[Rfam]
RNA sequence: CAGCAGAAACGGCAAGGUACUUGAAAAGGUGCUACGCAAAACUACCGGUCUAAGGGUAUUCCUACGACAGCGGGGUUUCCAAC
Numbered sequence: 001c002a003g004c005a006g007a008a009a010c011g012g013c014a015a016g017g018u019a020c021u022u023g024a025a026a027a028g029g030u031g032c033u034a035c036g037c038a039a040a041a042c043u044a045c046c047g048g049u050c051u052a053a054g055g056g057u058a059u060u061c062c063u064a065c066g067a068c069a070g071c072g073g074g075g076u077u078u079c080c081a082a083c
Stems, first nucleotide, its partner, number of pairs: 012037002017032006040077004045073003048068003055062002